RNA sequence: AGAAUCAAUCGCUAGCAGUAGAGGAAAGUCCGUGCUAUCACAGGCUGGAAUGCCUGUAGUGUUCGUGCUAAGCCUAAUAAGCUUAGGCAUCGGAAGAUGACGACGGCAUAACUCCUAAGUCGCAAGAUAAGGAGGGCGCCAUAAAGUGCCACAGAGACUAUGACUUUGUGAAAACAAAGGGUGAAAAGCUGGUAAACUCCGCGAGAUAGAAACCCAAAUUUGGUAGGGGAGUCGCAUCAAAAGAAUCAAAAUGGCGAUGCGGUAGGGUUACCUAAGAUAAAUGAUUGAUUGAAAAACAGAACACGGCUUAU
Numbered sequence: 001a002g003a004a005u006c007a008a009u010c011g012c013u014a015g016c017a018g019u020a021g022a023g024g025a026a027a028g029u030c031c032g033u034g035c036u037a038u039c040a041c042a043g044g045c046u047g048g049a050a051u052g053c054c055u056g057u058a059g060u061g062u063u064c065g066u067g068c069u070a071a072g073c074c075u076a077a078u079a080a081g082c083u084u085a086g087g088c089a090u091c092g093g094a095a096g097a098u099g100a101c102g103a104c105g106g107c108a109u110a111a112c113u114c115c116u117a118a119g120u121c122g123c124a125a126g127a128u129a130a131g132g133a134g135g136g137c138g139c140c141a142u143a144a145a146g147u148g149c150c151a152c153a154g155a156g157a158c159u160a161u162g163a164c165u166u167u168g169u170g171a172a173a174a175c176a177a178a179g180g181g182u183g184a185a186a187a188g189c190u191g192g193u194a195a196a197c198u199c200c201g202c203g204a205g206a207u208a209g210a211a212a213c214c215c216a217a218a219u220u221u222g223g224u225a226g227g228g229g230a231g232u233c234g235c236a237u238c239a240a241a242a243g244a245a246u247c248a249a250a251a252u253g254g255c256g257a258u259g260c261g262g263u264a265g266g267g268u269u270a271c272c273u274a275a276g277a278u279a280a281a282u283g284a285u286u287g288a289u290u291g292a293a294a295a296a297c298a299g300a301a302c303a304c305g306g307c308u309u310a311u
Stems, first nucleotide, its partner, number of pairs: 003311001004289007012021003026309003030306005035209005040057006063204005068086006087101001088099004102199002105140003112134004119128003146197002148193003164179006213228003232262007263274004
Record summary
Shown here is a 311-nucleotide RNA sequence from Intestinibaculum porci, a member of the family "Bacterial RNase P class B". Taxonomically the source falls in Intestinibaculum (Bacteria, Bacillati, Bacillota, Erysipelotrichales). The base pairs follow the family's consensus structure, which is taken from published work. From the family's description: Ribonuclease P (RNase P) is a ubiquitous endoribonuclease, found in archaea, bacteria and eukarya as well as chloroplasts and mitochondria. By type it is a ribozyme. A reference for the family is Brown (1999), "The Ribonuclease P Database", Nucleic Acids Res.